[Rfam]
RNA sequence: CCUUCACUGAUGAUUCACUCCAUGACUUUCGUUCUCCUGAGUGUGUGCUGAAGCAACGGUGUUUCCAUCUGAGGAGG
Numbered sequence: 001c002c003u004u005c006a007c008u009g010a011u012g013a014u015u016c017a018c019u020c021c022a023u024g025a026c027u028u029u030c031g032u033u034c035u036c037c038u039g040a041g042u043g044u045g046u047g048c049u050g051a052a053g054c055a056a057c058g059g060u061g062u063u064u065c066c067a068u069c070u071g072a073g074g075a076g077g
Stems, first nucleotide, its partner, number of pairs: 001077003005073001
RNA: Small nucleolar RNA SNORD59
Organism: Malurus cyaneus